The record is an 81-nucleotide RNA sequence from Paenibacillus polymyxa, which matches "BsrC" in Rfam. Rfam describes the family as follows. The 301 nucleotide sequence from Kouji Nakamura has been trimmed to a highly conserved ~85 nucleotide long core to form this family. The family's consensus secondary structure was predicted with CMfinder. The family's RNA type in Rfam is small RNA. It scores 66 bits against the family's covariance model. NCBI's taxonomy places the organism under Bacteria, Bacillati, Bacillota, Paenibacillaceae, Paenibacillus polymyxa.

RNA sequence: CAUUUUCCAAACGACAAAAGCCCUACCUCUCUUUCGUCCUUGCGGCUCCGAUGACCGCGCCAGUGUGAAUGUGAAAAUCUU
Numbered sequence: 001c002a003u004u005u006u007c008c009a010a011a012c013g014a015c016a017a018a019a020g021c022c023c024u025a026c027c028u029c030u031c032u033u034u035c036g037u038c039c040u041u042g043c044g045g046c047u048c049c050g051a052u053g054a055c056c057g058c059g060c061c062a063g064u065g066u067g068a069a070u071g072u073g074a075a076a077a078u079c080u081u
Stems, first nucleotide, its partner, number of pairs: 034068003039063002041059005047053001